[Rfam]
RNA: PreQ1 (pre queuosine) riboswitch aptamer
Organism: Fervidibacillus halotolerans
RNA sequence: CCCGACGUGGUUCGAGACCAUCCCACGUAAAAAAACUAGGGAGAG
Numbered sequence: 001c002c003c004g005a006c007g008u009g010g011u012u013c014g015a016g017a018c019c020a021u022c023c024c025a026c027g028u029a030a031a032a033a034a035a036c037u038a039g040g041g042a043g044a045g
Base pairs, nucleotide, nucleotide: 006027007026008025009024010023016037